[Rfam]
Shown here is a 368-nucleotide sequence from Exiguobacterium chiriqhucha, a member of the family "Bacterial RNase P class B". For this family Rfam cites "Ribonuclease P: unity and diversity in a tRNA processing ribozyme" (Frank and Pace, Annu Rev Biochem, 1998). The base pairs follow the family's consensus structure, which is taken from published work.

RNA sequence: AGGUCUGGGCAAUCGCGGGACGCAAGUCUUGAGGAAAGUCCAUGCUCGCACAGCCUGUGAUGGCUGUAGUGAUCGUGCUACACGAAAAGAUAAGUGUAGGCAACGCAAGUUGACGGCAGAAGAAGCACCUAAGUCCUCGGAUAUGGUGCAAGCUUCUUGAAAGUGCCACAGUGACGGAGUCUGAUCGGAAACGUUCAGAGUGGAACGAGGUAAACCCCACGAGCGAGAAACCCAAACUAUGGUAGGGGAACUUCCUGACUGGAACCGAACGGGACGGAAGGCGCCAAUCGGCGCAGAUAGAUGAUUGUCACUCCAUCGUGCCAGGGAGACCGUUAUGAGCACCGGAGUACAGAACAUGGCUUACAGGG
Dot-bracket structure: ...(((((((((((.((((((....))))))....[[[.[[[[[(((((((((((......)))))).....(((((((((((..........))))))(((((....)))).)((.((((....((((...(((....)))..)))).....)))).....(((((............(((((.((....)).))))).........)))..))))))))))))))...(((...........)))...(((((.(.................))))))(((((....)))))........))))))).((((...((...................))...)))).......]]]]]]]].).)))